A member of the RNA family "Small nucleolar RNA SNORD56" from Phyllostomus discolor, 69 nucleotides long.
Taxonomically the source falls in Phyllostomus (Eukaryota, Gnathostomata, Theria, Phyllostomidae).
It scores 76 bits against the family's covariance model.
It is annotated as a C/D-box small nucleolar RNA.
Its family is annotated with RNA processing and nucleolus in the Gene Ontology.
The literature on the family includes a 2002 paper in Mol Cell Biol by Galardi et al., "Purified box C/D snoRNPs are able to reproduce site-specific 2'-O-methylation of target RNA in vitro".
[Rfam]
RNA sequence: CUGCAAUGACGGCAACAUUUUUCAUCAACAGCAAUUCACCUUGAGCGUUGAGACCUUGGGUCUGAGUGG
Numbered sequence: 001c002u003g004c005a006a007u008g009a010c011g012g013c014a015a016c017a018u019u020u021u022u023c024a025u026c027a028a029c030a031g032c033a034a035u036u037c038a039c040c041u042u043g044a045g046c047g048u049u050g051a052g053a054c055c056u057u058g059g060g061u062c063u064g065a066g067u068g069g
Base pairs, nucleotide, nucleotide: 002068003067004066008026009025011023